[Rfam]
RNA sequence: UUUUUUGAAUCGCUGAGUUUCCGUUCGUUCAGGAACGGGAAUCGGGGGAACCAAUCGCGCGCUCCCGUCGUCCGGUGUGAGAGUCGGACGGCAGGCAGGCCGCAGGGGUGAAUCCCGUGACCGGAUGCCAUGGAUCCGUCAUCACGGGUAGAGCGACUCUCACCGCUCGAAUCCGUCAGCUAACCUCGUAAGCGUCGUAUGGGAGAGGAA
Numbered sequence: 001u002u003u004u005u006u007g008a009a010u011c012g013c014u015g016a017g018u019u020u021c022c023g024u025u026c027g028u029u030c031a032g033g034a035a036c037g038g039g040a041a042u043c044g045g046g047g048g049a050a051c052c053a054a055u056c057g058c059g060c061g062c063u064c065c066c067g068u069c070g071u072c073c074g075g076u077g078u079g080a081g082a083g084u085c086g087g088a089c090g091g092c093a094g095g096c097a098g099g100c101c102g103c104a105g106g107g108g109u110g111a112a113u114c115c116c117g118u119g120a121c122c123g124g125a126u127g128c129c130a131u132g133g134a135u136c137c138g139u140c141a142u143c144a145c146g147g148g149u150a151g152a153g154c155g156a157c158u159c160u161c162a163c164c165g166c167u168c169g170a171a172u173c174c175g176u177c178a179g180c181u182a183a184c185c186u187c188g189u190a191a192g193c194g195u196c197g198u199a200u201g202g203g204a205g206a207g208g209a210a
Base pairs, nucleotide, nucleotide: 011194012193013192014191018041019040020039021038022037023036024035025034026033043188044187045186046185047184052105106174107173108172114148115147116146117145118144119143120142151168152167153166154165
RNA: c-di-AMP riboswitch aptamer (ydaO/yuaA leader)
Organism: Paenibacillus albilobatus